Description:
The record is a 343-nucleotide RNA sequence, which matches "Bacterial RNase P class A" in Rfam. The base pairs follow the family's consensus structure, which is taken from published work. Rfam describes the family as follows. Ribonuclease P (RNase P) is a ubiquitous endoribonuclease, found in archaea, bacteria and eukarya as well as chloroplasts and mitochondria. It scores 315 bits against the family's covariance model. It is annotated as a ribozyme.

RNA sequence: UGGGUCGGCUGGACGGUCGCGGCAUUGCCGAGGAACGUCCGGGCUCCAAAGAGCACGGUGGUGGGUAACGCCCACCUGGGGUAACCCAAGAGAUAGUGCAACAGAAAGUAAACCGCCCCCUAGGGGGUAAGGGUGAAACGGUGGUGUAAGAGACCACCAGCGGAUUAGGAGACUAGUUCGGCUAGGUAAACCUCACCGGGAGCAAGACCAAGUAAGAAGACGCUAAGGACUGCUCGUUUAGUCUUCGGGUAGGUCGCUAGAGCCACUUAGCAAUUUGUGGCCGAGAUAGAUGGCCGUCAGUGCUUAGGCAUUACAGAACCCGGCGUAUCGGCCGACCCAUCUC
Numbered sequence: 001u002g003g004g005u006c007g008g009c010u011g012g013a014c015g016g017u018c019g020c021g022g023c024a025u026u027g028c029c030g031a032g033g034a035a036c037g038u039c040c041g042g043g044c045u046c047c048a049a050a051g052a053g054c055a056c057g058g059u060g061g062u063g064g065g066u067a068a069c070g071c072c073c074a075c076c077u078g079g080g081g082u083a084a085c086c087c088a089a090g091a092g093a094u095a096g097u098g099c100a101a102c103a104g105a106a107a108g109u110a111a112a113c114c115g116c117c118c119c120c121u122a123g124g125g126g127g128u129a130a131g132g133g134u135g136a137a138a139c140g141g142u143g144g145u146g147u148a149a150g151a152g153a154c155c156a157c158c159a160g161c162g163g164a165u166u167a168g169g170a171g172a173c174u175a176g177u178u179c180g181g182c183u184a185g186g187u188a189a190a191c192c193u194c195a196c197c198g199g200g201a202g203c204a205a206g207a208c209c210a211a212g213u214a215a216g217a218a219g220a221c222g223c224u225a226a227g228g229a230c231u232g233c234u235c236g237u238u239u240a241g242u243c244u245u246c247g248g249g250u251a252g253g254u255c256g257c258u259a260g261a262g263c264c265a266c267u268u269a270g271c272a273a274u275u276u277g278u279g280g281c282c283g284a285g286a287u288a289g290a291u292g293g294c295c296g297u298c299a300g301u302g303c304u305u306a307g308g309c310a311u312u313a314c315a316g317a318a319c320c321c322g323g324c325g326u327a328u329c330g331g332c333c334g335a336c337c338c339a340u341c342u343c
Base pairs, nucleotide, nucleotide: 001339002338003337004336005335006334007333008332009331010330011328012298013297014296015295016294017293018292020030021029022028023027035326036325037324039323040322041321042320043319044202045201046200047199051235052234053233054232056198057197058196059195060194061075062074063073064072065071076090077088078087079086080085091193092192096191097190098187099186113132114131115128116127117126118125119124140158141157142156143155144154145153160182161180162179163178164177165176166175167174168173206255207254208253209252216246217245218244219243220242221241227239228238229237230236262281263280264279265278266277269274
Dot-bracket structure: ((((((((((((((((((.((((...))))....[[[.[[[[[((((...[[[[.((((((((((.....)))))(((((....)))).)((...((((.............(((((((....)))))..)).......((((((.......)))))).(((((((((....)))))))).)...))..)))))))))))))...((((......((((((.....((((.]]]])))).)))))).....))))......(((((..(....)..)))))..........)))))))....................]]]]]]]].).))))))))))....